[Rfam]
RNA: glmS glucosamine-6-phosphate activated ribozyme aptamer
RNA sequence: UCGGCAACAAAAGCGCCAGAACUUGUUGAAAGAUGGGGAGACGCGGAAGGGCAAAGAUCAGGGACGGGAAAGCUGAUCCGAGCGGCAAACUUCGGCGGAGAGCCAUGCGGACGCAAGUUGACGAGGUGGAGGUGUUCGAAACGUUCGGCGGGGACCUCCCGGCUCACCAUCGGAGCCGACAGCCGGAACUCAAAACGCUCAGGGCAACCGGGCGAACAAAAUUCCGGCACGAUGUUGA
Numbered sequence: 001u002c003g004g005c006a007a008c009a010a011a012a013g014c015g016c017c018a019g020a021a022c023u024u025g026u027u028g029a030a031a032g033a034u035g036g037g038g039a040g041a042c043g044c045g046g047a048a049g050g051g052c053a054a055a056g057a058u059c060a061g062g063g064a065c066g067g068g069a070a071a072g073c074u075g076a077u078c079c080g081a082g083c084g085g086c087a088a089a090c091u092u093c094g095g096c097g098g099a100g101a102g103c104c105a106u107g108c109g110g111a112c113g114c115a116a117g118u119u120g121a122c123g124a125g126g127u128g129g130a131g132g133u134g135u136u137c138g139a140a141a142c143g144u145u146c147g148g149c150g151g152g153g154a155c156c157u158c159c160c161g162g163c164u165c166a167c168c169a170u171c172g173g174a175g176c177c178g179a180c181a182g183c184c185g186g187a188a189c190u191c192a193a194a195a196c197g198c199u200c201a202g203g204g205c206a207a208c209c210g211g212g213c214g215a216a217c218a219a220a221a222u223u224c225c226g227g228c229a230c231g232a233u234g235u236u237g238a
Base pairs, nucleotide, nucleotide: 020119021118022117023116024115025114026113128159129158130157131156132155136148137147138146139145160178161177162176163175164174165173182228183227184226185225186224187223188222196214197213198212199211200210202209203208